The record is an 80-nucleotide RNA sequence from Ruminiclostridium herbifermentans, which matches "ZMP/ZTP riboswitch aptamer (pfl RNA motif)" in Rfam. For this family Rfam cites "Recognition of the bacterial alarmone ZMP through long-distance association of two RNA subdomains" (Jones and Ferre-D'Amare, Nat Struct Mol Biol, 2015). Gene Ontology terms of the family: one-carbon metabolic process and regulation of purine nucleotide biosynthetic process. The match comes from Rfam's covariance-model search (60 bits).
[Rfam]
RNA sequence: AAACUGUUAUACAACUGGCGGAAGUGGAGAUUACCACAUGGGAGUAUAACUUUUAAAAGCCGGCCGCCUGGGCACCAAUA
Number, nucleotide and partner (000 for none) at each position: 001a000002a000003a053004c000005u000006g050007u049008u048009a047010u046011a045012c044013a000014a000015c041016u040017g068018g067019c066020g065021g064022a000023a000024g037025u036026g035027g034028a000029g000030a000031u000032u000033a000034c027035c026036a025037c024038a000039u000040g016041g015042g000043a000044g012045u011046a010047u009048a008049a007050c006051u000052u000053u003054u000055a000056a000057a000058a000059g073060c072061c071062g000063g000064c021065c020066g019067c018068c017069u000070g000071g061072g060073c059074a000075c000076c000077a000078a000079u000080a000